[Rfam]
RNA sequence: ACAAGAAAAACAAAAACCCGUACGACACCCACAAUAAAAAUAAGACGAAUCGACUCACGCAUAACAAGAACAACACGGCGGAGGCGCAGCUAACUGAUUCUUUUGGAGAGGAGUUGUAUUUGGGGCUUGCCCCGCAACCAGGCCGAGAACAAUAAAAACUACCCUUAGGUAGCGCCUGAACUGGUUGGAUCGAACGAUCAUUGCAACGCAGCGACCAAAGCAAUCCGUUUGCUCUUGACUCCCGAUUGGGAGGUUUCACAGGUCACAGGCCUUGUGAAUGGGCACUCAACAAAAACAAGAAGCCCGGUCAGACAAUAAAAAUAAAGAGCACGCACUUUGGGGGAGCUUCGGCUCCCCCAGUAGCUUGUCCCGCAUUGUUUUCCCUCCCCGC
Numbered sequence: 001a002c003a004a005g006a007a008a009a010a011c012a013a014a015a016a017c018c019c020g021u022a023c024g025a026c027a028c029c030c031a032c033a034a035u036a037a038a039a040a041u042a043a044g045a046c047g048a049a050u051c052g053a054c055u056c057a058c059g060c061a062u063a064a065c066a067a068g069a070a071c072a073a074c075a076c077g078g079c080g081g082a083g084g085c086g087c088a089g090c091u092a093a094c095u096g097a098u099u100c101u102u103u104u105g106g107a108g109a110g111g112a113g114u115u116g117u118a119u120u121u122g123g124g125g126c127u128u129g130c131c132c133c134g135c136a137a138c139c140a141g142g143c144c145g146a147g148a149a150c151a152a153u154a155a156a157a158a159c160u161a162c163c164c165u166u167a168g169g170u171a172g173c174g175c176c177u178g179a180a181c182u183g184g185u186u187g188g189a190u191c192g193a194a195c196g197a198u199c200a201u202u203g204c205a206a207c208g209c210a211g212c213g214a215c216c217a218a219a220g221c222a223a224u225c226c227g228u229u230u231g232c233u234c235u236u237g238a239c240u241c242c243c244g245a246u247u248g249g250g251a252g253g254u255u256u257c258a259c260a261g262g263u264c265a266c267a268g269g270c271c272u273u274g275u276g277a278a279u280g281g282g283c284a285c286u287c288a289a290c291a292a293a294a295a296c297a298a299g300a301a302g303c304c305c306g307g308u309c310a311g312a313c314a315a316u317a318a319a320a321a322u323a324a325a326g327a328g329c330a331c332g333c334a335c336u337u338u339g340g341g342g343g344a345g346c347u348u349c350g351g352c353u354c355c356c357c358c359a360g361u362a363g364c365u366u367g368u369c370c371c372g373c374a375u376u377g378u379u380u381u382c383c384c385u386c387c388c389c390g391c
Stems, first nucleotide, its partner, number of pairs: 051086002054083003101220005115213003135187007159172005238254003242250001274373003280305004324366003339358008